[Rfam]
RNA sequence: GGCAGAGGGAGCCCGGCUCCCGUGCCGCGAGGCAUGAGGAAAGUCCCCCCACCCGUUCGGGCACGCGGCCGGACGCAAGUCCGGGGCGGGAGACCGCCGGCACUGGAACAGAGACGACACGUCCCUCCGACACCGAUGAGGCGUGCGACCCGACCCGGAAGGGGAGGAAGCUAACCCGCCGAGGGAAGCGCGGCUCUGCCGCGUUGAGGCGAACGGCGUCAGCCGUGAGCCAGUGUGGGAUUCCCACCAGAGCGGAGGGGAGCGAUGGAACGGCCAACCCCCGCCGGUGCAAGUCCGUGCGUGCGAGGUAGCCCGAACCACCCGAGAGGGGCCGCGCGGACGCUCAGCCGAAUGCCGGGCCGAACAGAAGGGGGCUUACUCCCCUCAGCU
Numbered sequence: 001g002g003c004a005g006a007g008g009g010a011g012c013c014c015g016g017c018u019c020c021c022g023u024g025c026c027g028c029g030a031g032g033c034a035u036g037a038g039g040a041a042a043g044u045c046c047c048c049c050c051a052c053c054c055g056u057u058c059g060g061g062c063a064c065g066c067g068g069c070c071g072g073a074c075g076c077a078a079g080u081c082c083g084g085g086g087c088g089g090g091a092g093a094c095c096g097c098c099g100g101c102a103c104u105g106g107a108a109c110a111g112a113g114a115c116g117a118c119a120c121g122u123c124c125c126u127c128c129g130a131c132a133c134c135g136a137u138g139a140g141g142c143g144u145g146c147g148a149c150c151c152g153a154c155c156c157g158g159a160a161g162g163g164g165a166g167g168a169a170g171c172u173a174a175c176c177c178g179c180c181g182a183g184g185g186a187a188g189c190g191c192g193g194c195u196c197u198g199c200c201g202c203g204u205u206g207a208g209g210c211g212a213a214c215g216g217c218g219u220c221a222g223c224c225g226u227g228a229g230c231c232a233g234u235g236u237g238g239g240a241u242u243c244c245c246a247c248c249a250g251a252g253c254g255g256a257g258g259g260g261a262g263c264g265a266u267g268g269a270a271c272g273g274c275c276a277a278c279c280c281c282c283g284c285c286g287g288u289g290c291a292a293g294u295c296c297g298u299g300c301g302u303g304c305g306a307g308g309u310a311g312c313c314c315g316a317a318c319c320a321c322c323c324g325a326g327a328g329g330g331g332c333c334g335c336g337c338g339g340a341c342g343c344u345c346a347g348c349c350g351a352a353u354g355c356c357g358g359g360c361c362g363a364a365c366a367g368a369a370g371g372g373g374g375c376u377u378a379c380u381c382c383c384c385u386c387a388g389c390u
Base pairs, nucleotide, nucleotide: 001390002389003388005386006385007384008383009382010380011379012359013358014357015356016355017354021036022035023034024033025032041377042376043375045374046373047372048371049370050289051288052287053286065284066283067282068281069084070083071082072081073080085098086097087096088095089094099280100279104276105275106274120264121263122262123259124258125257126256127255128254129253293341294340295339296338297337298336299335300334301333
RNA: Archaeal RNase P